[Rfam]
RNA: Small nucleolar RNA U54
Organism: Eragrostis curvula
RNA sequence: AGCUCAAUGAUUUUAACCAGUCACUCUGGUUAUAUAUGCUAUUCUGAUUAGCUGUUGAAAAAAUAUUUAUGGGAGCU
Numbered sequence: 001a002g003c004u005c006a007a008u009g010a011u012u013u014u015a016a017c018c019a020g021u022c023a024c025u026c027u028g029g030u031u032a033u034a035u036a037u038g039c040u041a042u043u044c045u046g047a048u049u050a051g052c053u054g055u056u057g058a059a060a061a062a063a064u065a066u067u068u069a070u071g072g073g074a075g076c077u
Stems, first nucleotide, its partner, number of pairs: 001077005